This 122-nucleotide RNA from Hoskinsella hominis belongs to the Rfam family "FMN riboswitch aptamer (RFN element)". Rfam describes the family as follows. The RFN element is a highly conserved domain that is found frequently in the 5'-untranslated regions of prokaryotic mRNAs that encode for flavin mononucleotide (FMN) biosynthesis and transport proteins.

RNA sequence: CAAAGUCUUUGUGGCGGGGUGUAAGUCCCUACCGAUGGUAAAGUCCAUGACCCGCAAAAUUCGCGGCUGAUCUGGUGUGAUUCCAGAACCGACGGUAAUAGUCCGGAUGAGAAAAGACAUUU
Numbered sequence: 001c002a003a004a005g006u007c008u009u010u011g012u013g014g015c016g017g018g019g020u021g022u023a024a025g026u027c028c029c030u031a032c033c034g035a036u037g038g039u040a041a042a043g044u045c046c047a048u049g050a051c052c053c054g055c056a057a058a059a060u061u062c063g064c065g066g067c068u069g070a071u072c073u074g075g076u077g078u079g080a081u082u083c084c085a086g087a088a089c090c091g092a093c094g095g096u097a098a099u100a101g102u103c104c105g106g107a108u109g110a111g112a113a114a115a116g117a118c119a120u121u122u
Stems, first nucleotide, its partner, number of pairs: 003120001005118006017029003031102002033091002035048004043089002052066002071087005093105003

The organism belongs to Hoskinsella, within Bacteria. Gene Ontology term of the family: FMN binding.